[Rfam]
RNA sequence: AAAAAGCCCGCUUCGCGUCGGCAAAAGCGGGCUUCGUGUGCGGGGGACGCUGCGGCGUCGGGCGGCGUGACCGCCGUCUUUCGCUUUAGCUGUGUUUGGGUCGCCCCGCGUCCGCAAGCUGAAUCAAAUCGACGCUUGCGCAUCGUAGCACAUGCGGCACCGUUCGU
Numbered sequence: 001a002a003a004a005a006g007c008c009c010g011c012u013u014c015g016c017g018u019c020g021g022c023a024a025a026a027g028c029g030g031g032c033u034u035c036g037u038g039u040g041c042g043g044g045g046g047a048c049g050c051u052g053c054g055g056c057g058u059c060g061g062g063c064g065g066c067g068u069g070a071c072c073g074c075c076g077u078c079u080u081u082c083g084c085u086u087u088a089g090c091u092g093u094g095u096u097u098g099g100g101u102c103g104c105c106c107c108g109c110g111u112c113c114g115c116a117a118g119c120u121g122a123a124u125c126a127a128a129u130c131g132a133c134g135c136u137u138g139c140g141c142a143u144c145g146u147a148g149c150a151c152a153u154g155c156g157g158c159a160c161c162g163u164u165c166g167u
Stems, first nucleotide, its partner, number of pairs: 004034009015022002040135003049084002054081002060075002063073003086122006098107003108115002150167002154163001
This 167-nucleotide RNA from Trinickia fusca belongs to the Rfam family "Burkholderia sRNA Bp2_Cand287_SIPHT". The family's consensus secondary structure was predicted with RNAalifold. The family's RNA type in Rfam is small RNA. The organism belongs to Trinickia, within Bacteria.